[Rfam]
Rfam assigns this 76-nucleotide sequence from Psychromonas ingrahamii to the family "c-di-GMP-I riboswitch aptamer".
RNA sequence: GAAGUUGAUUCGCAAACCUGGGGAAACCUUGGGGCGCAAAGCUAUAGGGCCUGUAAAAUGGUAGCCAGUUGCCGAA
Numbered sequence: 001g002a003a004g005u006u007g008a009u010u011c012g013c014a015a016a017c018c019u020g021g022g023g024a025a026a027c028c029u030u031g032g033g034g035c036g037c038a039a040a041g042c043u044a045u046a047g048g049g050c051c052u053g054u055a056a057a058a059u060g061g062u063a064g065c066c067a068g069u070u071g072c073c074g075a076a
Base pairs, nucleotide, nucleotide: 012037013036017032018031020029021028022027040070041069042068043067047066048065049062050061051060